Record summary: This 278-nucleotide sequence from Macaca nemestrina belongs to the Rfam family "Mason-Pfizer monkey virus packaging signal". This family represents a group of sequences that are related to the Mason-Pfizer monkey virus (MPMV) packaging signal. The literature on the family includes a 2004 paper in Virus Res by Mustafa et al., "Mutational analysis of the predicted secondary RNA structure of the Mason-Pfizer monkey virus packaging signal".

RNA sequence: UGGCGCCCGAACACGGACCUGGAAACGAGGGACUCCUGUGAGAACAGGACCCAAAGGAUGGUGACCGCUUUAACAAAAGACAAAAGGAUUAACUGAUCACCGCGGGAACCUGCCGCGUCAGGAAUCCGAAGGUAAGUGAGGCGUCCGAAUGGCAAAAUUAAGUCAGCACAAAAAUAAUACUGUAAGGACAAUAAAGAGGGCUUUAAAGAUGACAGGAGUAAACGUUAAGGUAAUGACUUGCUUUUUAAAAUUUUGAAUUUUGUAAAGAUACUUGCCUU
Dot-bracket structure: .....(((....................))).....(.(......).)......................................(.((.....(((..(((((.......)))))....)).)....)).).......((...(....))).....((((((..................................))).))).......(((((.(..(.((((......)))).).........).))))).........(((.(....).)))
Numbered sequence: 001u002g003g004c005g006c007c008c009g010a011a012c013a014c015g016g017a018c019c020u021g022g023a024a025a026c027g028a029g030g031g032a033c034u035c036c037u038g039u040g041a042g043a044a045c046a047g048g049a050c051c052c053a054a055a056g057g058a059u060g061g062u063g064a065c066c067g068c069u070u071u072a073a074c075a076a077a078a079g080a081c082a083a084a085a086g087g088a089u090u091a092a093c094u095g096a097u098c099a100c101c102g103c104g105g106g107a108a109c110c111u112g113c114c115g116c117g118u119c120a121g122g123a124a125u126c127c128g129a130a131g132g133u134a135a136g137u138g139a140g141g142c143g144u145c146c147g148a149a150u151g152g153c154a155a156a157a158u159u160a161a162g163u164c165a166g167c168a169c170a171a172a173a174a175u176a177a178u179a180c181u182g183u184a185a186g187g188a189c190a191a192u193a194a195a196g197a198g199g200g201c202u203u204u205a206a207a208g209a210u211g212a213c214a215g216g217a218g219u220a221a222a223c224g225u226u227a228a229g230g231u232a233a234u235g236a237c238u239u240g241c242u243u244u245u246u247a248a249a250a251u252u253u254u255g256a257a258u259u260u261u262g263u264a265a266a267g268a269u270a271c272u273u274g275c276c277u278u
Stems, first nucleotide, its partner, number of pairs: 006031003037048001039046001087133001089131002096125001097123002101117005141153002146151001159205003162201003213255005219249001222239001224237004265278003269274001